[Rfam]
RNA sequence: AUGAUUGGCCAUGAUGAUACGAAGCUCCCUCUUCUGAAAAUAAUUGAGGACAGUCGCUGGCAGAAUCGAACCUAAUUCUCUAAUCGCCAACACUGAGCCA
Numbered sequence: 001a002u003g004a005u006u007g008g009c010c011a012u013g014a015u016g017a018u019a020c021g022a023a024g025c026u027c028c029c030u031c032u033u034c035u036g037a038a039a040a041u042a043a044u045u046g047a048g049g050a051c052a053g054u055c056g057c058u059g060g061c062a063g064a065a066u067c068g069a070a071c072c073u074a075a076u077u078c079u080c081u082a083a084u085c086g087c088c089a090a091c092a093c094u095g096a097g098c099c100a
Base pairs, nucleotide, nucleotide: 006100007099008098009097
RNA: Small nucleolar RNA R30/Z108